The family of this 30-nucleotide sequence from Clostridium senegalense is "CRISPR RNA direct repeat element". The base pairs follow the family's consensus structure, which was predicted with WAR.
[Rfam]
RNA sequence: AUUUAAAUACAUCCUAUGUUGAGGUUCAAC
Numbered sequence: 001a002u003u004u005a006a007a008u009a010c011a012u013c014c015u016a017u018g019u020u021g022a023g024g025u026u027c028a029a030c
Base pairs, nucleotide, nucleotide: 009019010018011017012016